[Rfam]
RNA sequence: GACUCGGGCCCAUGCGGCUUCGACGCCUAAAUCUGGUCAGGACCGGAAGGUAGCAGCCACAAGGGAUGCUUGAAUCUGGCGUGGAUUCCGGGUCACCU
Numbered sequence: 001g002a003c004u005c006g007g008g009c010c011c012a013u014g015c016g017g018c019u020u021c022g023a024c025g026c027c028u029a030a031a032u033c034u035g036g037u038c039a040g041g042a043c044c045g046g047a048a049g050g051u052a053g054c055a056g057c058c059a060c061a062a063g064g065g066a067u068g069c070u071u072g073a074a075u076c077u078g079g080c081g082u083g084g085a086u087u088c089c090g091g092g093u094c095a096c097c098u
Base pairs, nucleotide, nucleotide: 004092005091007089008088010084011083012082013081014080017076019074020073021072022071026065027064028063034059035058036057037056042051043050044049